Shown here is a 53-nucleotide sequence from Haberlea rhodopensis, a member of the family "Plastid-ccsA-ndhD-2 3UTR RNA". The family has 421 seed sequences and 875 matches in Rfam 15.1. Rfam's curators write: Plastid ccsA-ndhD-2 is a non-coding RNA (ncRNA) recognised in plastids. It was found in the three prime untranslated region (3UTR) of ccsA and ndhD genes, its 3UTR location suggests a role in transcript maturation. The base pairs follow the family's consensus structure, which was predicted with LocARNA. It is annotated as a cis-regulatory element. Taxonomically the source falls in Haberlea (Eukaryota, eudicotyledons, lamiids, Didymocarpoideae). For this family Rfam cites "Retrograde signaling in plants: A critical review focusing on the GUN pathway and beyond" (Richter et al., Plant Commun, 2023).
RNA sequence: GCGAGAACCCUGUGAAUUUAAUAGUGUAGUAAUUCACAGGGUUCUCGCCCGUU
Numbered sequence: 001g002c003g004a005g006a007a008c009c010c011u012g013u014g015a016a017u018u019u020a021a022u023a024g025u026g027u028a029g030u031a032a033u034u035c036a037c038a039g040g041g042u043u044c045u046c047g048c049c050c051g052u053u
Base pairs, nucleotide, nucleotide: 001048002047003046004045005044006043007042008041009040010039011038012037013036014035015034016033017032018031